[Rfam]
RNA sequence: UAUUAAAAAGUCCAUCAAAUUCUACUGUUAAAAACUAACGUGGUUGAUAGAAUAAUCAAAUAAUUACACUUGGUGUGCCACGUGUAUCUCAUUUUCUUAUAGGGACCGGCUUUUAACAAUAGAAUUGGAUGAAAUUUUUAACA
Numbered sequence: 001u002a003u004u005a006a007a008a009a010g011u012c013c014a015u016c017a018a019a020u021u022c023u024a025c026u027g028u029u030a031a032a033a034a035c036u037a038a039c040g041u042g043g044u045u046g047a048u049a050g051a052a053u054a055a056u057c058a059a060a061u062a063a064u065u066a067c068a069c070u071u072g073g074u075g076u077g078c079c080a081c082g083u084g085u086a087u088c089u090c091a092u093u094u095u096c097u098u099a100u101a102g103g104g105a106c107c108g109g110c111u112u113u114u115a116a117c118a119a120u121a122g123a124a125u126u127g128g129a130u131g132a133a134a135u136u137u138u139u140a141a142c143a
Stems, first nucleotide, its partner, number of pairs: 003141007011133001013131004018126007026118001028116006

The family of this 143-nucleotide sequence from Gossypium klotzschianum is "MIR7502 microRNA precursor family".
Its family is annotated with miRNA-mediated post-transcriptional gene silencing and RISC complex in the Gene Ontology.
Taxonomically the source falls in Gossypium (Eukaryota, Spermatophyta, Magnoliopsida, Malvoideae).